RNA sequence: UCCUGCCUCGCGAAAAGUGGUCCUUGUGACCGCCUGCCCCCUUCCAUUGAAGGAUAUGGGCUAGCGAGGUGGGUUAUU
Dot-bracket structure: (((.(((((((.....((((((.....))))))..((((..................))))..)))))))))).....
RNA: DUF3800-IX RNA